Overview: The family of this 130-nucleotide RNA from Castanea mollissima is "Small nucleolar RNA snoR74". Taxonomically the source falls in Castanea (Eukaryota, Streptophytina, Gunneridae, fabids). Gene Ontology terms of the family: RNA processing and nucleolus. On this family, see Marker et al., Curr Biol 2002: "Experimental RNomics: identification of 140 candidates for small non-messenger RNAs in the plant Arabidopsis thaliana".
RNA sequence: AAAAAAGCAGGGGUCUGUUGCCUAUGUGAACAGGCCUCUCGUAAAUGUCAGGGAAAUCAAGUUUCAUCGUUAUUGGGUGAACCUCUGUUUGUUGUUUGUGGCUGAAGGUUCAGUAAAUGAUGGAACAUUU
Numbered sequence: 001a002a003a004a005a006a007g008c009a010g011g012g013g014u015c016u017g018u019u020g021c022c023u024a025u026g027u028g029a030a031c032a033g034g035c036c037u038c039u040c041g042u043a044a045a046u047g048u049c050a051g052g053g054a055a056a057u058c059a060a061g062u063u064u065c066a067u068c069g070u071u072a073u074u075g076g077g078u079g080a081a082c083c084u085c086u087g088u089u090u091g092u093u094g095u096u097u098g099u100g101g102c103u104g105a106a107g108g109u110u111c112a113g114u115a116a117a118u119g120a121u122g123g124a125a126c127a128u129u130u
Base pairs, nucleotide, nucleotide: 005048007046011037012036014034015033016032017031063124064123065122066121067120068119069118070117071116078112079111080110081109082108083107084106